RNA: M-box riboswitch aptamer (ykoK leader)
RNA sequence: UAAUAAAAUUGUUAGGUGAGGCUCCUAUGUACAGGAUAUACGCUACUGCCCAAAAACAUCGAGAGAUGCCAAUGGGUCAACAGAUACUGCCGAAAGUUAAGGCUUUAUUUAAUGUAGCUGAGUUUAACUCAAAGCCACAUAGUGCUAAAGCUCAACAAAAAGUAAUAUAU
Numbered sequence: 001u002a003a004u005a006a007a008a009u010u011g012u013u014a015g016g017u018g019a020g021g022c023u024c025c026u027a028u029g030u031a032c033a034g035g036a037u038a039u040a041c042g043c044u045a046c047u048g049c050c051c052a053a054a055a056a057c058a059u060c061g062a063g064a065g066a067u068g069c070c071a072a073u074g075g076g077u078c079a080a081c082a083g084a085u086a087c088u089g090c091c092g093a094a095a096g097u098u099a100a101g102g103c104u105u106u107a108u109u110u111a112a113u114g115u116a117g118c119u120g121a122g123u124u125u126a127a128c129u130c131a132a133a134g135c136c137a138c139a140u141a142g143u144g145c146u147a148a149a150g151c152u153c154a155a156c157a158a159a160a161a162g163u164a165a166u167a168u169a170u
Stems, first nucleotide, its partner, number of pairs: 005166001008163003011156002013100001015152003020146003025142006034136002042118005048077005057068004083109004089103003120130003